[Rfam]
RNA sequence: UAGGGAACCACACGGCCGUAGAUCCGACUCGCCGUUCGCCGGUGCGUGGCAUCGUUCCUUCGCCGCGCGGCCGGGACGGCUUGGGACUGCGGUAGUGU
Numbered sequence: 001u002a003g004g005g006a007a008c009c010a011c012a013c014g015g016c017c018g019u020a021g022a023u024c025c026g027a028c029u030c031g032c033c034g035u036u037c038g039c040c041g042g043u044g045c046g047u048g049g050c051a052u053c054g055u056u057c058c059u060u061c062g063c064c065g066c067g068c069g070g071c072c073g074g075g076a077c078g079g080c081u082u083g084g085g086a087c088u089g090c091g092g093u094a095g096u097g098u
Stems, first nucleotide, its partner, number of pairs: 010098004015093007024085002031080007